Description
A member of the RNA family "U11 spliceosomal RNA" from Cavia porcellus, 134 nucleotides long.
RNA sequence: AAAAAGGGCUUCUAUCGUAAGUGGCACAUAUAGGGCAACUUGUUUGCUCUGCUUGUGCAAUCAACAUCAAGAGAUUUUGGAAGCAUUAUUUUUUGGUACUUGGGCAGCUAGUGAUCAUUGGUCCUGGAGCCCUU
Dot-bracket structure: .......((((((.(((....))).)((..((((((((.....))))))))..))((.((((..........)))).))))))).................((((..((((.((((...)))))))).))))..

On this family, see Montzka and Steitz, Proc Natl Acad Sci U S A 1988: "Additional low-abundance human small nuclear ribonucleoproteins: U11, U12, etc". Rfam classes the family as a spliceosomal small nuclear RNA. The organism belongs to Cavia, within Eukaryota.